About this RNA: Rfam assigns this 67-nucleotide sequence from Sitophilus oryzae to the family "mir-71 microRNA precursor family". A search with the family's covariance model found it, with a score of 69 bits.
RNA sequence: UCUAUAUGAAAGACAUGGGUAGUGAGAUGUUAUUUGUUUAUCUCACUACCUUGUCUUUCAUAAAGAG
Numbered sequence: 001u002c003u004a005u006a007u008g009a010a011a012g013a014c015a016u017g018g019g020u021a022g023u024g025a026g027a028u029g030u031u032a033u034u035u036g037u038u039u040a041u042c043u044c045a046c047u048a049c050c051u052u053g054u055c056u057u058u059c060a061u062a063a064a065g066a067g
Stems, first nucleotide, its partner, number of pairs: 008059008017051003021047009